[Rfam]
RNA sequence: AGUAAGGAUAGAGGAGCAAAAACCAUUAGUACACAAUUGGAGGAUAAUGAGAUCCGUUGAUGAUUGUGAAAAGGGGGAUUUGCCGAAGUGGAGAGAACCUCAUUUUUCUCGAAGCUGGUUCUGUUGUUGAAUAAAUACAGAACUGUCAUGUAGUUAUCUAUAUGGAGGGCUAUCAUACGC
Numbered sequence: 001a002g003u004a005a006g007g008a009u010a011g012a013g014g015a016g017c018a019a020a021a022a023c024c025a026u027u028a029g030u031a032c033a034c035a036a037u038u039g040g041a042g043g044a045u046a047a048u049g050a051g052a053u054c055c056g057u058u059g060a061u062g063a064u065u066g067u068g069a070a071a072a073g074g075g076g077g078a079u080u081u082g083c084c085g086a087a088g089u090g091g092a093g094a095g096a097a098c099c100u101c102a103u104u105u106u107u108c109u110c111g112a113a114g115c116u117g118g119u120u121c122u123g124u125u126g127u128u129g130a131a132u133a134a135a136u137a138c139a140g141a142a143c144u145g146u147c148a149u150g151u152a153g154u155u156a157u158c159u160a161u162a163u164g165g166a167g168g169g170c171u172a173u174c175a176u177a178c179g180c
Stems, first nucleotide, its partner, number of pairs: 007174005016083005023076002032068008087116003093110005117144008127134001146165007
This 180-nucleotide sequence from Rummeliibacillus sp. TYF005 belongs to the Rfam family "Lysine riboswitch aptamer". The source organism's lineage runs through Bacteria, Bacillota, Bacilli, Caryophanaceae and Rummeliibacillus. The base pairs follow the family's consensus structure, which is taken from published work.